[Rfam]
RNA sequence: CUGAUGGAACCGUAAGGGUGGACGUUUUGUGGAACGAGCCCACAUCUGGCGUAUUGUUUAUGCGCGCAGAAACGGAGUCCGUCAG
Numbered sequence: 001c002u003g004a005u006g007g008a009a010c011c012g013u014a015a016g017g018g019u020g021g022a023c024g025u026u027u028u029g030u031g032g033a034a035c036g037a038g039c040c041c042a043c044a045u046c047u048g049g050c051g052u053a054u055u056g057u058u059u060a061u062g063c064g065c066g067c068a069g070a071a072a073c074g075g076a077g078u079c080c081g082u083c084a085g
Stems, first nucleotide, its partner, number of pairs: 001085005010075004016041003023036005045070004049065006
RNA: L4-Archaeoglobi ribosomal protein leades